[Rfam]
RNA sequence: ACCUGUUGUGGGUGACACGCGCGUGGACGCCCGCAGCAAUCAGGACAAACACCGUGUCACGGGAACACCGGGGCACUUCAGGGCGUU
Number, nucleotide and partner (000 for none) at each position: 001a000002c000003c000004u038005g037006u036007u035008g034009u033010g032011g031012g030013u029014g028015a000016c026017a000018c000019g000020c000021g000022c000023g000024u000025g000026g016027a000028c014029g013030c012031c011032c010033g009034c008035a007036g006037c005038a004039a000040u000041c000042a000043g000044g000045a000046c000047a000048a000049a000050c000051a000052c000053c000054g076055u075056g074057u073058c072059a000060c070061g069062g000063g000064a000065a000066c000067a000068c000069c061070g060071g000072g058073g057074c056075a055076c054077u000078u000079c000080a000081g000082g000083g000084c000085g000086u000087u000
Annotation: A member of the RNA family "nrdJ RNA" from Streptomyces sp. AVP053U2, 87 nucleotides long. The source organism's lineage runs through Bacteria, Bacillati, Actinomycetes, Kitasatosporales and Streptomyces. The family's RNA type in Rfam is small RNA. The family's consensus secondary structure is taken from published work. The match comes from Rfam's covariance-model search (70 bits).